[Rfam]
RNA sequence: ACGGGUGGCCGCCCUCCCUGUCCUCCAGGAGCUCACGUAUGCCUGCUUGUGAGCGCCUCGAUGACAGAGCCGGCGUCUACUUCUGUAUCUGC
Numbered sequence: 001a002c003g004g005g006u007g008g009c010c011g012c013c014c015u016c017c018c019u020g021u022c023c024u025c026c027a028g029g030a031g032c033u034c035a036c037g038u039a040u041g042c043c044u045g046c047u048u049g050u051g052a053g054c055g056c057c058u059c060g061a062u063g064a065c066a067g068a069g070c071c072g073g074c075g076u077c078u079a080c081u082u083c084u085g086u087a088u089c090u091g092c
Stems, first nucleotide, its partner, number of pairs: 005080004010075004016069001018067003022063001024061002027058003031054006037046003
A member of the RNA family "mir-339 microRNA precursor family" from Octodon degus, 92 nucleotides long. Taxonomically the source falls in Octodon (Eukaryota, Vertebrata, Eutheria, Octodontidae). Its family is annotated with miRNA-mediated post-transcriptional gene silencing and RISC complex in the Gene Ontology.